[Rfam]
RNA sequence: CAUCAAACAGGAAAUGGUGUCUUCCUGACCCAACCGCUUACCAAAGCUGAUGGCGCCUACAAAUGA
Numbered sequence: 001c002a003u004c005a006a007a008c009a010g011g012a013a014a015u016g017g018u019g020u021c022u023u024c025c026u027g028a029c030c031c032a033a034c035c036g037c038u039u040a041c042c043a044a045a046g047c048u049g050a051u052g053g054c055g056c057c058u059a060c061a062a063a064u065g066a
Stems, first nucleotide, its partner, number of pairs: 010025004016057006036047004
Dot-bracket structure: .........[[[[..((((((]]]]..........((((....))))....)))))).........